[Rfam]
RNA sequence: CAUGAACACGAUUAUUAUUCUUGUGGUACGGGCGCGCAUGGGCAGGAUGGUGUAACCAUCCGGCGAAAGCUCCCAUGCGCGAAAGACAGGCUCCCUCGGGGGCCUUUUUUAUUAUCCAAA
Numbered sequence: 001c002a003u004g005a006a007c008a009c010g011a012u013u014a015u016u017a018u019u020c021u022u023g024u025g026g027u028a029c030g031g032g033c034g035c036g037c038a039u040g041g042g043c044a045g046g047a048u049g050g051u052g053u054a055a056c057c058a059u060c061c062g063g064c065g066a067a068a069g070c071u072c073c074c075a076u077g078c079g080c081g082a083a084a085g086a087c088a089g090g091c092u093c094c095c096u097c098g099g100g101g102g103c104c105u106u107u108u109u110u111a112u113u114a115u116c117c118a119a120a
Base pairs, nucleotide, nucleotide: 009026030116031115033081034080035079036078037077038076039075040074041073042072045061046060047059048058049057050056063070064069086106088105089104090103091102092101093100094099
A member of the RNA family "Rhizobiales sRNA Atu_C8" from Brucella anthropi, 120 nucleotides long. Pairs were carried over by alignment from the consensus structure, which was predicted with CMfinder. Rfam classes the family as a small RNA. The literature on the family includes a 2012 paper in RNA Biol by Wilms et al., "Deep sequencing uncovers numerous small RNAs on all four replicons of the plant pathogen Agrobacterium tumefaciens". It is one of the family's seed sequences.